[Rfam]
RNA sequence: AUGAUGGCAACGGGAGAGAUCGCCCAUGAAGGACUUGGAGGCGGCGCCGAAGGAGUAACCCUCUUAGGAGGAGAAUCUCUCAGGCAAAAGGACCUUUGCCGGACG
Numbered sequence: 001a002u003g004a005u006g007g008c009a010a011c012g013g014g015a016g017a018g019a020u021c022g023c024c025c026a027u028g029a030a031g032g033a034c035u036u037g038g039a040g041g042c043g044g045c046g047c048c049g050a051a052g053g054a055g056u057a058a059c060c061c062u063c064u065u066a067g068g069a070g071g072a073g074a075a076u077c078u079c080u081c082a083g084g085c086a087a088a089a090g091g092a093c094c095u096u097u098g099c100c101g102g103a104c105g
Stems, first nucleotide, its partner, number of pairs: 006100005012094002020044004046085003049081002053079003060071001
Shown here is a 105-nucleotide RNA from Cohnella sp. OV330, a member of the family "Glycine riboswitch aptamer". Taxonomically the source falls in Cohnella (Bacteria, Bacillati, Bacillota, Bacilli). The pairing is the family consensus, mapped onto this sequence. From the family's description: This family represents the bacterial glycine riboswitch.